This 87-nucleotide sequence from Camellia sinensis belongs to the Rfam family "Small nucleolar RNA Z102/R77". A reference for the family is Barneche et al. (2001), "Identification of 66 box C/D snoRNAs in Arabidopsis thaliana: extensive gene duplications generated multiple isoforms predicting new ribosomal RNA 2'-O-methylation sites", J Mol Biol. Gene Ontology terms of the family: RNA processing and nucleolus.
[Rfam]
RNA sequence: GAAUGAGAUGAUGAUUAGAUUUGUUUCCCUAUUGGUUUGAUCACCAGGAUGAUGGUUUUGUUUCUGGAUGGGUAAAUUUGAUCAUUA
Numbered sequence: 001g002a003a004u005g006a007g008a009u010g011a012u013g014a015u016u017a018g019a020u021u022u023g024u025u026u027c028c029c030u031a032u033u034g035g036u037u038u039g040a041u042c043a044c045c046a047g048g049a050u051g052a053u054g055g056u057u058u059u060g061u062u063u064c065u066g067g068a069u070g071g072g073u074a075a076a077u078u079u080g081a082u083c084a085u086u087a
Stems, first nucleotide, its partner, number of pairs: 002086004039059001043056003